[Rfam]
RNA sequence: AUCGUUUAUUUUAAAUAUUCUCUAAUAAAAUUUAAAUCUGUUCUUAUCAGUUUAAUAUCUGAUAGGUCCUUUAUUUGAGGACUGUAUAUUAAAUUGAUUUUUGAAACAAGGGGAUGGAAUAGGAGCUUGCUCUGUCCACCCCAUGCAUUGACCUGGUAUUGCAGUGUCUCCAGAACCAGUGCCUCUCCU
Number, nucleotide and partner (000 for none) at each position: 001a000002u000003c000004g000005u000006u000007u025008a000009u000010u000011u000012u000013a000014a000015a000016u000017a000018u000019u000020c000021u000022c000023u000024a000025a007026u000027a000028a000029a000030a000031u000032u000033u000034a000035a000036a000037u000038c000039u000040g000041u000042u000043c000044u000045u064046a063047u062048c061049a060050g059051u000052u000053u000054a000055a000056u000057a000058u000059c050060u049061g048062a047063u046064a045065g000066g082067u081068c080069c079070u078071u077072u000073a000074u000075u000076u000077g071078a070079g069080g068081a067082c066083u000084g000085u000086a000087u000088a000089u000090u000091a000092a000093a000094u000095u000096g000097a000098u000099u000100u000101u000102u000103g000104a000105a000106a000107c000108a000109a000110g142111g141112g140113g139114a000115u000116g136117g135118a000119a000120u000121a000122g133123g132124a131125g130126c000127u000128u000129g000130c125131u124132c123133u122134g000135u117136c116137c000138a000139c113140c112141c111142c110143a000144u000145g182146c181147a180148u179149u178150g177151a000152c000153c173154u172155g171156g170157u000158a000159u000160u000161g000162c000163a000164g000165u000166g000167u000168c000169u000170c156171c155172a154173g153174a000175a000176c000177c150178a149179g148180u147181g146182c145183c000184u000185c000186u000187c000188c000189u000

A member of the RNA family "U2 spliceosomal RNA" from Mauremys mutica, 189 nucleotides long.
Lineage of the source: Eukaryota > Opisthokonta > Gnathostomata > Geoemydidae > Mauremys.
A search with the family's covariance model found it, with a score of 116 bits.